RNA sequence: AGAGAUUACAAACUUGAGGCCAUAGUAGAAGUACUCACGGUGCAACCUGUCAGACUCCAGUGAAUCUGCAAAUUCUGCU
Numbered sequence: 001a002g003a004g005a006u007u008a009c010a011a012a013c014u015u016g017a018g019g020c021c022a023u024a025g026u027a028g029a030a031g032u033a034c035u036c037a038c039g040g041u042g043c044a045a046c047c048u049g050u051c052a053g054a055c056u057c058c059a060g061u062g063a064a065u066c067u068g069c070a071a072a073u074u075c076u077g078c079u
Base pairs, nucleotide, nucleotide: 018047019046024079025078026077027076028075029074030073031043032042033041051068052067053066054065056063057062
This 79-nucleotide RNA sequence from Alligator mississippiensis belongs to the Rfam family "Mammalian CPEB3 ribozyme". Rfam 15.1 lists 5,706 matches to the family in 197 species. NCBI's taxonomy places the organism under Eukaryota, Vertebrata, Teleostomi, Amniota, Alligator. Pairs were carried over by alignment from the consensus structure, which is taken from published work. Gene Ontology term of the family: RNA nuclease activity.